[Rfam]
This 91-nucleotide sequence from Caballeronia sp. SBC1 belongs to the Rfam family "Burkholderia RNA 7 (anti-hemB)". It is annotated as a small RNA. Lineage of the source: Bacteria > Pseudomonadota > Burkholderiales > Burkholderiaceae > Caballeronia. The family's consensus secondary structure is taken from published work. The family has 26 seed sequences and 479 matches in Rfam 15.1. Rfam's curators write: This RNA motif was identified by computational search in b-proteobacteria Burkholderia. Co-purified with Hfq, expression confirmed by Northern blot.

RNA sequence: UCCCCGCUUCUCCUCCCUGAGCGGGUGCCUGUGAUGAUCGAAGGAUUCGAUCAGGCUGUUUGACCCGCCGUCAUGCGGCGGGUUUUUUUAU
Numbered sequence: 001u002c003c004c005c006g007c008u009u010c011u012c013c014u015c016c017c018u019g020a021g022c023g024g025g026u027g028c029c030u031g032u033g034a035u036g037a038u039c040g041a042a043g044g045a046u047u048c049g050a051u052c053a054g055g056c057u058g059u060u061u062g063a064c065c066c067g068c069c070g071u072c073a074u075g076c077g078g079c080g081g082g083u084u085u086u087u088u089u090a091u
Base pairs, nucleotide, nucleotide: 003025004024005023006022007021008020027056028055029054030053031052063083064082065081066080067079068078069077070076